This 138-nucleotide RNA from Larus smithsonianus belongs to the Rfam family "Small nucleolar RNA SNORA47". For this family Rfam cites "RNomics: an experimental approach that identifies 201 candidates for novel, small, non-messenger RNAs in mouse" (Huttenhofer et al., EMBO J, 2001). Pairs were carried over by alignment from the consensus structure, which was predicted with WAR. The source organism's lineage runs through Eukaryota, Sauropsida, Sauria, Coelurosauria and Larus.
RNA sequence: UGGAGGACUGAGAAGGUAAGACAGUUAAACUUAUGCUGUUUCUUACUGGUUAUAGCCUCCAAAAUUAUAAUAGUGCAAUGGCAACUCGUGUUCCCCUCCUGACAUGAGGGAAAGCAGUACUGCAUUUGCACAUAAUGC
Numbered sequence: 001u002g003g004a005g006g007a008c009u010g011a012g013a014a015g016g017u018a019a020g021a022c023a024g025u026u027a028a029a030c031u032u033a034u035g036c037u038g039u040u041u042c043u044u045a046c047u048g049g050u051u052a053u054a055g056c057c058u059c060c061a062a063a064a065u066u067a068u069a070a071u072a073g074u075g076c077a078a079u080g081g082c083a084a085c086u087c088g089u090g091u092u093c094c095c096c097u098c099c100u101g102a103c104a105u106g107a108g109g110g111a112a113a114g115c116a117g118u119a120c121u122g123c124a125u126u127u128g129c130a131c132a133u134a135a136u137g138c
Base pairs, nucleotide, nucleotide: 002060003059004058005057006056015047016046017045018044019041020040021039022038023037024036025035081129082128088123089122090121096117097116099114100113103110